[Rfam]
RNA sequence: CUAUAAAAGUAUUAUCAAUAGAUAGCUUGGAGGCAUGUUUACAUGCAUUACAGGCUAUCUAUUAGAUAAUCUGAGCUGCAUGAACAAGAAGGGCGAAAGCCCGGAUUGUGAAUAUGGCAGCAGAUGCGAGAGUGCAAAGCACGGAGCAUCUGGCUUUUAUAG
Numbered sequence: 001c002u003a004u005a006a007a008a009g010u011a012u013u014a015u016c017a018a019u020a021g022a023u024a025g026c027u028u029g030g031a032g033g034c035a036u037g038u039u040u041a042c043a044u045g046c047a048u049u050a051c052a053g054g055c056u057a058u059c060u061a062u063u064a065g066a067u068a069a070u071c072u073g074a075g076c077u078g079c080a081u082g083a084a085c086a087a088g089a090a091g092g093g094c095g096a097a098a099g100c101c102c103g104g105a106u107u108g109u110g111a112a113u114a115u116g117g118c119a120g121c122a123g124a125u126g127c128g129a130g131a132g133u134g135c136a137a138a139g140c141a142c143g144g145a146g147c148a149u150c151u152g153g154c155u156u157u158u159a160u161a162g
Stems, first nucleotide, its partner, number of pairs: 001162007011070004017063013031049002033046005075118004080113002084109004091102004121152007132142004